[Rfam]
RNA sequence: UGAUAGUCAUUCCACAUCUAUUCAGGAGAAAUGAAUGGACGAUUUUUAACUAUCAUAGAAUAAUUGGAAUCACUUCACCCAUGUUGACUUGCAAGUUCUAUCUUGUAUUGUAGUUAACUAUGGUUUUGCUGUUUCCUACAUAU
Numbered sequence: 001u002g003a004u005a006g007u008c009a010u011u012c013c014a015c016a017u018c019u020a021u022u023c024a025g026g027a028g029a030a031a032u033g034a035a036u037g038g039a040c041g042a043u044u045u046u047u048a049a050c051u052a053u054c055a056u057a058g059a060a061u062a063a064u065u066g067g068a069a070u071c072a073c074u075u076c077a078c079c080c081a082u083g084u085u086g087a088c089u090u091g092c093a094a095g096u097u098c099u100a101u102c103u104u105g106u107a108u109u110g111u112a113g114u115u116a117a118c119u120a121u122g123g124u125u126u127u128g129c130u131g132u133u134u135c136c137u138a139c140a141u142a143u
Base pairs, nucleotide, nucleotide: 001055002054003053004052005051006050007049015041017039018038020036021035022034023033067135068134069133071131072130079123080122081121082120083119084117085116086115087114088113094106
Dot-bracket structure: (((((((.......(.((.((((.........)))).)).).......)))))))...........(((.((......((((((((((.....(...........)......))))).)))))......)).)))........